Annotation: The family of this 72-nucleotide sequence from Actinoplanes awajinensis is "ASpks TB sRNA". By type it is an antisense RNA. The organism belongs to Actinoplanes awajinensis, within Bacteria. It scores 80 bits against the family's covariance model.
Nucleotides: 072
Base pairs, nucleotide, nucleotide: 015025016024017023027068028067029066035062036061040057041056044053045052046051
Number, partner (000 for none) and nucleotide at each position: 001000c002000u003000u004000c005000a006000c007000c008000g009000a010000g011000c012000c013000c014000a015025g016024c017023c018000a019000c020000a021000g022000c023017g024016g025015c026000c027068c028067g029066c030000c031000g032000g033000a034000a035062c036061g037000g038000u039000c040057c041056u042000g043000g044053c045052c046051g047000u048000a049000g050000g051046u052045g053044g054000c055000g056041a057040g058000c059000a060000g061036c062035g063000c064000c065000u066029g067028c068027g069000c070000c071000u072000c